[Rfam]
RNA sequence: CUGCAUUCUUAAACCCUCUUGGCGGCUUUGCUCAGGUGCCUCCAAGACAUGAGUGAAUGCUAGAGACACCGCGGGAAGUCAAAAGGACUGUGCCUCACGUGGCUUAACCUUACUUCACACCUGUGACAUCU
Numbered sequence: 001c002u003g004c005a006u007u008c009u010u011a012a013a014c015c016c017u018c019u020u021g022g023c024g025g026c027u028u029u030g031c032u033c034a035g036g037u038g039c040c041u042c043c044a045a046g047a048c049a050u051g052a053g054u055g056a057a058u059g060c061u062a063g064a065g066a067c068a069c070c071g072c073g074g075g076a077a078g079u080c081a082a083a084a085g086g087a088c089u090g091u092g093c094c095u096c097a098c099g100u101g102g103c104u105u106a107a108c109c110u111u112a113c114u115u116c117a118c119a120c121c122u123g124u125g126a127c128a129u130c131u
Base pairs, nucleotide, nucleotide: 003060004059005058006057008053009052010051011050017047018046019045020044021043022042024040025039026038064131065130066129070125071124072123073122074121075120084111085110086109089106090105092103093102
Shown here is a 131-nucleotide RNA sequence from Nannospalax galili, a member of the family "Small nucleolar RNA SNORA14". The family's RNA type in Rfam is H/ACA-box small nucleolar RNA. The base pairs follow the family's consensus structure, which was predicted with RNAfold. About the family: ACA14 is a member of the H/ACA class of snoRNA that guide the sites of modification of uridines to pseudouridines. Taxonomically the source falls in Nannospalax (Eukaryota, Tetrapoda, Myomorpha, Spalacidae). It scores 105 bits against the family's covariance model. Gene Ontology terms of the family: RNA processing and nucleolus.